The record is a 54-nucleotide RNA sequence from Ictalurus punctatus, which matches "mir-103/107 microRNA precursor family" in Rfam. Gene Ontology terms of the family: miRNA-mediated post-transcriptional gene silencing and RISC complex. For this family Rfam cites "miRNPs: a novel class of ribonucleoproteins containing numerous microRNAs" (Mourelatos et al., Genes Dev, 2002). The source organism's lineage runs through Eukaryota, Bilateria, Actinopteri, Neopterygii and Ictalurus.
[Rfam]
RNA sequence: CUUCUCUACAGUGUUGCCUUGUAGCCUGGUGAUCAAGCAGCAUUGUACAGGGCU
Numbered sequence: 001c002u003u004c005u006c007u008a009c010a011g012u013g014u015u016g017c018c019u020u021g022u023a024g025c026c027u028g029g030u031g032a033u034c035a036a037g038c039a040g041c042a043u044u045g046u047a048c049a050g051g052g053c054u
Base pairs, nucleotide, nucleotide: 002052003051004050005049007047008046009045010044011043012042013041014040015039016038018037019036020035021034